RNA sequence: UCCCAGUGAAGAUUUUUAGACCAGGAAGUGCCGCAUGACACUGUAAACAACAGCUGUUGU
Numbered sequence: 001u002c003c004c005a006g007u008g009a010a011g012a013u014u015u016u017u018a019g020a021c022c023a024g025g026a027a028g029u030g031c032c033g034c035a036u037g038a039c040a041c042u043g044u045a046a047a048c049a050a051c052a053g054c055u056g057u058u059g060u
Base pairs, nucleotide, nucleotide: 015053025044027042028041029040030039
This 60-nucleotide sequence from Triticum urartu belongs to the Rfam family "Small nucleolar RNA U49". Lineage of the source: Eukaryota > Streptophyta > Spermatophyta > Pooideae > Triticum. Its Rfam clan is "SNORD49 clan". The family has 5 seed sequences and 340 matches in Rfam 15.1.